[Rfam]
RNA sequence: UAACAGGAAAGGCUUGCAGGGCGGUCGGCAUUCCUCCGGAAGGAGGUGAUGCAGUGGAAGUGUACCAAUCAUUGACGCUGAUGAUUUCAUUUGCGACUUUGGUCGUGUUGAUGCUUUCGUUCCAUAAUAGGAAAUAGACCGCCACUGUCCAAGGUUUGCGGUCUAUUUCCGUAAUCCCUUAAAGCCGUCCGCUCUUCAAGCGGCUGUUACAGAGGAGUCAUGUUAGCGCAUGGCUC
Numbered sequence: 001u002a003a004c005a006g007g008a009a010a011g012g013c014u015u016g017c018a019g020g021g022c023g024g025u026c027g028g029c030a031u032u033c034c035u036c037c038g039g040a041a042g043g044a045g046g047u048g049a050u051g052c053a054g055u056g057g058a059a060g061u062g063u064a065c066c067a068a069u070c071a072u073u074g075a076c077g078c079u080g081a082u083g084a085u086u087u088c089a090u091u092u093g094c095g096a097c098u099u100u101g102g103u104c105g106u107g108u109u110g111a112u113g114c115u116u117u118c119g120u121u122c123c124a125u126a127a128u129a130g131g132a133a134a135u136a137g138a139c140c141g142c143c144a145c146u147g148u149c150c151a152a153g154g155u156u157u158g159c160g161g162u163c164u165a166u167u168u169c170c171g172u173a174a175u176c177c178c179u180u181a182a183a184g185c186c187g188u189c190c191g192c193u194c195u196u197c198a199a200g201c202g203g204c205u206g207u208u209a210c211a212g213a214g215g216a217g218u219c220a221u222g223u224u225a226g227c228g229c230a231u232g233g234c235u236c
Base pairs, nucleotide, nucleotide: 001209002208003207004206005205011186012185013184014183015182017147018146019145020143021142022141023140029048030047033046034045035044036043056118057117058116059115060114061113062112069084070083071082094110095109096108097107189203190202191201192200215236216235217234218233219232220231221230222229223228
Rfam assigns this 236-nucleotide RNA sequence from Desulfitobacterium hafniense to the family "BsrG". The source organism's lineage runs through Bacteria, Clostridia, Eubacteriales, Desulfitobacteriaceae and Desulfitobacterium hafniense. It is annotated as a small RNA. About the family: bsrE, bsrG and bsrH pair through intermolecular interactions with antisense sRNAs. They form type I toxin/antitoxin system that includes an mRNA encoding for a short, toxic peptide (bsrE, bsrG and bsrH) and an antitoxin that is comprised of an antisense RNA. bsrG encodes a 39-amino-acid toxin, and the 180 nucleotide antisense sRNA called SR4 acts as the antitoxin (they overlap by 123 nucleotides). SR4 interaction with the 3'UTR of bsrG RNA promotes bsrG degradation and inhibits its translation. BsrG interferes with cell envelope biosynthesis, causes membrane invaginations and delocalisation of the cell wall synthesis and initiates autolysis. bsrE RNA encodes 30 amino-acid toxin peptide. Its antitoxin gene, SR5 overlaps by 112 nucleotides at the 3' end of bsrE. SR5 also overlaps bsrG from nucleotide 163 to 52 (Rfam overlap check). The antitoxin SR5 promotes bsrE degradation but unlike SR4 it does not directly inhibits toxin mRNA translation. Rfam 15.1 lists 614 matches to the family in 343 species.